[Rfam]
RNA sequence: AGUUGACGAGGGCGGAACAGGCAGCCACCACACCCUUUGGGUCUGAAAGAGAUGCAGGAAUGUCGUCCUGCCGGAGCU
Numbered sequence: 001a002g003u004u005g006a007c008g009a010g011g012g013c014g015g016a017a018c019a020g021g022c023a024g025c026c027a028c029c030a031c032a033c034c035c036u037u038u039g040g041g042u043c044u045g046a047a048a049g050a051g052a053u054g055c056a057g058g059a060a061u062g063u064c065g066u067c068c069u070g071c072c073g074g075a076g077c078u
Stems, first nucleotide, its partner, number of pairs: 001078004007073002011029002014026002020064004031049001032042004054071005
Record summary: skipping-rope RNA: a 78-nucleotide RNA sequence. The sequence is in the family's curated seed alignment. It is annotated as a small RNA.